[Rfam]
This 46-nucleotide sequence from Lupinus albus belongs to the Rfam family "Plastid-ycf3 group II-D1 intron".
RNA sequence: AAUCCUUCUGUCGUGUAUCCCCGAUUAAUGAAGCCUCAUAUACUUC
Numbered sequence: 001a002a003u004c005c006u007u008c009u010g011u012c013g014u015g016u017a018u019c020c021c022c023g024a025u026u027a028a029u030g031a032a033g034c035c036u037c038a039u040a041u042a043c044u045u046c
Stems, first nucleotide, its partner, number of pairs: 010025004032044002
Description
The source organism's lineage runs through Eukaryota, Euphyllophyta, Magnoliopsida, Pentapetalae and Lupinus.